[Rfam]
RNA sequence: UCAGGCUACAACACAGGACCCGGGCGCUGCUCUGACCCCUCGUGUCUUGUGUUGCAGCCGG
Numbered sequence: 001u002c003a004g005g006c007u008a009c010a011a012c013a014c015a016g017g018a019c020c021c022g023g024g025c026g027c028u029g030c031u032c033u034g035a036c037c038c039c040u041c042g043u044g045u046c047u048u049g050u051g052u053u054g055c056a057g058c059c060g061g
Base pairs, nucleotide, nucleotide: 004059005058006057007056009054010053011052012051013050014049015048016047017046018045019044021042022041023040024039
The record is a 61-nucleotide RNA from Mus musculus, which matches "mir-187 microRNA precursor family" in Rfam. Rfam links the family to the GO terms miRNA-mediated post-transcriptional gene silencing and RISC complex. The family's consensus secondary structure was predicted with RNAalifold. Rfam's curators put it in the seed alignment.